[Rfam]
RNA sequence: CGCAUCGGUCCGAUGUUGAUGAGUUAUCAAUUCUUCUCUGUCUCUUCUGCUUGCAGGAGAAACCCCGGUUCCCUUGUGGAACCAAAAAACGUUGUCUGUCAGAAUCUUGUUCUGUCAAACAACACUCGCAUCCGUGCGAAACCCCCCUUCCCAUCAGCAAAACCUUGACCGUUGU
Numbered sequence: 001c002g003c004a005u006c007g008g009u010c011c012g013a014u015g016u017u018g019a020u021g022a023g024u025u026a027u028c029a030a031u032u033c034u035u036c037u038c039u040g041u042c043u044c045u046u047c048u049g050c051u052u053g054c055a056g057g058a059g060a061a062a063c064c065c066c067g068g069u070u071c072c073c074u075u076g077u078g079g080a081a082c083c084a085a086a087a088a089a090c091g092u093u094g095u096c097u098g099u100c101a102g103a104a105u106c107u108u109g110u111u112c113u114g115u116c117a118a119a120c121a122a123c124a125c126u127c128g129c130a131u132c133c134g135u136g137c138g139a140a141a142c143c144c145c146c147c148u149u150c151c152c153a154u155c156a157g158c159a160a161a162a163c164c165u166u167g168a169c170c171g172u173u174g175u
Base pairs, nucleotide, nucleotide: 002175003174004173006171007170008169009168010167015158016157017156018155019154020153021152023150043060044059045058046057047056048055049054069081070080071079072078
RNA: Nematode sRNA ceN72-3_ceN74-2